[Rfam]
RNA sequence: CGUUGCUUCACAGUCGUUCUUCACUGGCUAGUUUUAUGUGGCUCCACCUUAAAGCUGCCAGUUGAAGAGCUGUUGUGGGUAAC
Numbered sequence: 001c002g003u004u005g006c007u008u009c010a011c012a013g014u015c016g017u018u019c020u021u022c023a024c025u026g027g028c029u030a031g032u033u034u035u036a037u038g039u040g041g042c043u044c045c046a047c048c049u050u051a052a053a054g055c056u057g058c059c060a061g062u063u064g065a066a067g068a069g070c071u072g073u074u075g076u077g078g079g080u081a082a083c
Base pairs, nucleotide, nucleotide: 005080006079007078010076011075012074017069018068019067020066021065022064026059027058028057030056031055032054033053034052035051036050
Dot-bracket structure: ....(((..(((....((((((...(((.(((((((.............))))))))))....))))))....))).)))...